[Rfam]
Rfam assigns this 119-nucleotide sequence from Actinotignum schaalii to the family "FMN riboswitch aptamer (RFN element)". The base pairs follow the family's consensus structure, which is taken from published work. Lineage of the source: Bacteria > Bacillati > Actinomycetaceae > Actinotignum > Actinotignum schaalii. A search with the family's covariance model found it, with a score of 90 bits.
RNA sequence: ACGAUGCACCGGGGUCAGUGAAAGUCUGAACCGGCGGUAACAGUCCGCGAACCACGCAAGUGGCCGAUGGGGUGGAAUUCCCCAACCGACGGUAACAGUCCGGAUGGGAGGCGCAUUGA
Numbered sequence: 001a002c003g004a005u006g007c008a009c010c011g012g013g014g015u016c017a018g019u020g021a022a023a024g025u026c027u028g029a030a031c032c033g034g035c036g037g038u039a040a041c042a043g044u045c046c047g048c049g050a051a052c053c054a055c056g057c058a059a060g061u062g063g064c065c066g067a068u069g070g071g072g073u074g075g076a077a078u079u080c081c082c083c084a085a086c087c088g089a090c091g092g093u094a095a096c097a098g099u100c101c102g103g104a105u106g107g108g109a110g111g112c113g114c115a116u117u118g119a
Base pairs, nucleotide, nucleotide: 003117004116005115006114007113009111010110016028017027018026030099031098032088033087034048035047036046037045043086044085052063053062068084069083070082071081072080090102091101092100